[Rfam]
RNA: c-di-GMP-I-GGC riboswitch aptamer
RNA sequence: CGCGAUAAAGGCAAACCCUGAGUGAUCAGGGGGCGCAAAGCAAAGGGUCUUGUGUAGAGAUGUAUGGUCAUACGUCUCUGCAUCUGAUAAAAAGACAGCCUUACUGCCGAAA
Numbered sequence: 001c002g003c004g005a006u007a008a009a010g011g012c013a014a015a016c017c018c019u020g021a022g023u024g025a026u027c028a029g030g031g032g033g034c035g036c037a038a039a040g041c042a043a044a045g046g047g048u049c050u051u052g053u054g055u056a057g058a059g060a061u062g063u064a065u066g067g068u069c070a071u072a073c074g075u076c077u078c079u080g081c082a083u084c085u086g087a088u089a090a091a092a093a094g095a096c097a098g099c100c101u102u103a104c105u106g107c108c109g110a111a112a
Stems, first nucleotide, its partner, number of pairs: 003109002011036002016031006034098001039105002042102001044101003047096005